RNA sequence: UAACCCGCGAGCGCAGUCUCAGGGCCUCUCUCGAGACCCGAAGAACAAUUUUUGGGCGGUCUGUGAAGACCGAGAA
Numbered sequence: 001u002a003a004c005c006c007g008c009g010a011g012c013g014c015a016g017u018c019u020c021a022g023g024g025c026c027u028c029u030c031u032c033g034a035g036a037c038c039c040g041a042a043g044a045a046c047a048a049u050u051u052u053u054g055g056g057c058g059g060u061c062u063g064u065g066a067a068g069a070c071c072g073a074g075a076a
Stems, first nucleotide, its partner, number of pairs: 022039003026035003057072006

This 76-nucleotide RNA sequence from Gongylonema pulchrum belongs to the Rfam family "SmY spliceosomal RNA".
The family has 61 seed sequences and 408 matches in Rfam 15.1.
The source organism's lineage runs through Eukaryota, Eumetazoa, Spirurina, Spiruromorpha and Gongylonema.
By type it is a spliceosomal small nuclear RNA.